A member of the RNA family "Glycine riboswitch aptamer", 108 nucleotides long. The match comes from Rfam's covariance-model search (53 bits).
[Rfam]
RNA sequence: CCAUGACGUUCCGAAGAGCGGUUGAUGACUGCGUCACUCAGCCCACCGAAGGAGCAAGCGCCAUUCCAGCGGCGUGAAUCUCUCAGGUUCCAUGACGGAAGGGGUACG
Numbered sequence: 001c002c003a004u005g006a007c008g009u010u011c012c013g014a015a016g017a018g019c020g021g022u023u024g025a026u027g028a029c030u031g032c033g034u035c036a037c038u039c040a041g042c043c044c045a046c047c048g049a050a051g052g053a054g055c056a057a058g059c060g061c062c063a064u065u066c067c068a069g070c071g072g073c074g075u076g077a078a079u080c081u082c083u084c085a086g087g088u089u090c091c092a093u094g095a096c097g098g099a100a101g102g103g104g105u106a107c108g
Base pairs, nucleotide, nucleotide: 007102009100010099011098012097013096020043021042022041023040024039025038045088046087047086048084049083052082053081054080058075059074060073061072062071